[Rfam]
RNA sequence: CGUGGUGGUUAAUGAUGCAGCUCUUUUUUCCCCAUCAUAUCGACCGUGCUGAUUCCUCAGCUAUUAAGCCAGUCUCACUGAAACCACAUG
Numbered sequence: 001c002g003u004g005g006u007g008g009u010u011a012a013u014g015a016u017g018c019a020g021c022u023c024u025u026u027u028u029u030c031c032c033c034a035u036c037a038u039a040u041c042g043a044c045c046g047u048g049c050u051g052a053u054u055c056c057u058c059a060g061c062u063a064u065u066a067a068g069c070c071a072g073u074c075u076c077a078c079u080g081a082a083a084c085c086a087c088a089u090g
Stems, first nucleotide, its partner, number of pairs: 001090004006086005
RNA: Small nucleolar SNORD12/SNORD106